[Rfam]
Record summary: A member of the RNA family "Ribosomal S15 leader" from Psychrosphaera ytuae, 115 nucleotides long. From the family's description: The E. coli Ribosomal S15 gene 5' UTR can form two alternative structures. The source organism's lineage runs through Bacteria, Pseudomonadati, Pseudomonadota, Alteromonadales and Psychrosphaera. By type it is a cis-regulatory leader. The family is grouped with related families in Rfam's "Ribosomal Protein S15 Leader clan". For this family Rfam cites "Pseudoknot and translational control in the expression of the S15 ribosomal protein" (Benard et al., Biochimie, 1996). A search with the family's covariance model found it, with a score of 87 bits.

Nucleotides: 115
Stems, first nucleotide, its partner, number of pairs: 007026006046069002049066002052063001
Number, partner (000 for none) and nucleotide at each position: 001000c002000u003000g004000u005000u006000g007026g008025g009024c010023u011022g012021a013000g014000u015000u016000a017000g018000u019000g020000a021012u022011c023010g024009g025008c026007u027000a028000c029000a030000a031000c032000a033000a034000c035000a036000u037000u038000u039000a040000u041000u042000a043000u044000u045000u046069u047068u048000a049066g050065g051000a052063g053000a054000g055000a056000c057000u058000u059000a060000u061000g062000u063052c064000a065050c066049u067000a068047a069046g070000c071000g072000u073000u074000g075000a076000a077000g078000a079000a080000a081000a082000a083000g084000c085000a086000g087000c088000a089000a090000u091000c092000u093000u094000a095000g096000c097000u098000g099000a100000a101000u102000u103000u104000g105000g106000u107000g108000c109000g110000a111000a112000c113000g114000a115000a